[Rfam]
Nucleotides: 067
Base pairs, nucleotide, nucleotide: 004064005063007061008060009059010058011057012056016053017052018051020049021048022047023046024045025044026043027042028041
Number, partner (000 for none) and nucleotide at each position: 001000g002000u003000g004064a005063u006000a007061c008060u009059c010058a011057a012056a013000c014000u015000a016053u017052g018051g019000g020049g021048g022047c023046a024045c025044u026043u027042u028041g029000u030000g031000u032000u033000c034000u035000c036000a037000g038000g039000a040000c041028u042027a043026a044025a045024g046023u047022g048021c049020c050000g051018c052017c053016a054000a055000g056012u057011u058010u059009g060008a061007g062000c063005g064004u065000u066000a067000c
Rfam assigns this 67-nucleotide RNA from Peromyscus maniculatus to the family "mir-290 microRNA precursor family". A search with the family's covariance model found it, with a score of 63 bits. The family has 31 seed sequences and 565 matches in Rfam 15.1. Lineage of the source: Eukaryota > Chordata > Myomorpha > Peromyscus > Peromyscus maniculatus. A reference for the family is Houbaviy et al. (2003), "Embryonic stem cell-specific MicroRNAs", Dev Cell.